Rfam assigns this 82-nucleotide sequence from Papaver somniferum to the family "Small nucleolar RNA SNORD25". Taxonomically the source falls in Papaver (Eukaryota, Streptophytina, Embryophyta, Mesangiospermae). A reference for the family is Qu et al. (2001), "Identification of 10 novel snoRNA gene clusters from Arabidopsis thaliana", Nucleic Acids Res. Gene Ontology terms of the family: RNA processing and nucleolus.
RNA sequence: GAUGCUGAUGAUGACUACACAUAGACCUGUAAUGAUUGCGGAGAUGACCACAGAACUUGAACAUCUAAGGGGCUGAGGCAUA
Numbered sequence: 001g002a003u004g005c006u007g008a009u010g011a012u013g014a015c016u017a018c019a020c021a022u023a024g025a026c027c028u029g030u031a032a033u034g035a036u037u038g039c040g041g042a043g044a045u046g047a048c049c050a051c052a053g054a055a056c057u058u059g060a061a062c063a064u065c066u067a068a069g070g071g072g073c074u075g076a077g078g079c080a081u082a
Base pairs, nucleotide, nucleotide: 002081003080004079005078006077
Dot-bracket structure: .(((((......................................................................))))).